The family of this 175-nucleotide RNA from Staphylococcus sp. HMSC071G07 is "Lysine riboswitch aptamer". NCBI's taxonomy places the organism under Bacteria, Bacillati, Bacillota, Bacilli, Staphylococcus. It scores 111 bits against the family's covariance model. The base pairs follow the family's consensus structure, which is taken from published work.
RNA sequence: AUAAGAGUUAGAGGUUGCGACUUCGAUGAGUAAUUGAGUGUAGGCAGAAUGAGGCUGAGGAAACUCAAAUGAAAGGCGAAGUCGCCGAAGCGAUAUCCAUUGUCAUUCAUUGAUAUCGUUGGGUCAGACAUCGAAAGGUGCUGGACUGUCACAAUUGUGAUGUGCUACCUAUAAU
Numbered sequence: 001a002u003a004a005g006a007g008u009u010a011g012a013g014g015u016u017g018c019g020a021c022u023u024c025g026a027u028g029a030g031u032a033a034u035u036g037a038g039u040g041u042a043g044g045c046a047g048a049a050u051g052a053g054g055c056u057g058a059g060g061a062a063a064c065u066c067a068a069a070u071g072a073a074a075g076g077c078g079a080a081g082u083c084g085c086c087g088a089a090g091c092g093a094u095a096u097c098c099a100u101u102g103u104c105a106u107u108c109a110u111u112g113a114u115a116u117c118g119u120u121g122g123g124u125c126a127g128a129c130a131u132c133g134a135a136a137g138g139u140g141c142u143g144g145a146c147u148g149u150c151a152c153a154a155u156u157g158u159g160a161u162g163u164g165c166u167a168c169c170u171a172u173a174a175u
Stems, first nucleotide, its partner, number of pairs: 006170002009167003017085009033070002035067005089120009099110002121147002124144004129140004149160004
Dot-bracket structure: .....((.(((.....(((((((((.......(((((((.......................))))).))......)))))))))...(((((((((.((........)).)))))))))((.((((.((((....)))))))).)).((((....))))....))).)).....